[Rfam]
RNA sequence: CUCUUGAUGAUGAUUUGACAAUUUGACUUUCGUUCUUCUGAGUCUGAUGAAGCCAAAUUUUGUCCUGAAAGAG
Number, nucleotide and partner (000 for none) at each position: 001c073002u072003c071004u000005u069006g000007a000008u000009g000010a000011u000012g000013a000014u000015u000016u000017g000018a000019c000020a000021a000022u000023u000024u000025g000026a000027c000028u000029u000030u000031c000032g000033u000034u000035c000036u000037u000038c000039u000040g000041a000042g000043u000044c000045u000046g000047a000048u000049g000050a000051a000052g000053c000054c000055a000056a000057a000058u000059u000060u000061u000062g000063u000064c000065c000066u000067g000068a000069a005070a000071g003072a002073g001

This 73-nucleotide RNA from Danio rerio belongs to the Rfam family "Small nucleolar RNA SNORD59". The family's RNA type in Rfam is C/D-box small nucleolar RNA. On this family, see Galardi et al., Mol Cell Biol 2002: "Purified box C/D snoRNPs are able to reproduce site-specific 2'-O-methylation of target RNA in vitro". Gene Ontology terms of the family: RNA processing and nucleolus. The base pairs follow the family's consensus structure, which was predicted with ILM. The organism belongs to Danio, within Eukaryota. It scores 76 bits against the family's covariance model.